MIR2629 microRNA precursor family: a 72-nucleotide RNA from Medicago truncatula. A search with the family's covariance model found it, with a score of 61 bits.
[Rfam]
RNA sequence: UGCCGAAGUUUUCCUCGGCAGUUAAUUGCAACCGGUUCUUUAAAAUUUCGGCAGUUAACUACUGAGGGGCAU
Number, nucleotide and partner (000 for none) at each position: 001u000002g000003c000004c000005g000006a000007a000008g000009u000010u000011u000012u068013c067014c000015u065016c064017g063018g062019c000020a060021g059022u058023u057024a056025a055026u054027u053028g052029c051030a000031a000032c000033c000034g000035g000036u000037u000038c000039u000040u000041u000042a000043a000044a000045a000046u000047u000048u000049c000050g000051g029052c028053a027054g026055u025056u024057a023058a022059c021060u020061a000062c018063u017064g016065a015066g000067g013068g012069g000070c000071a000072u000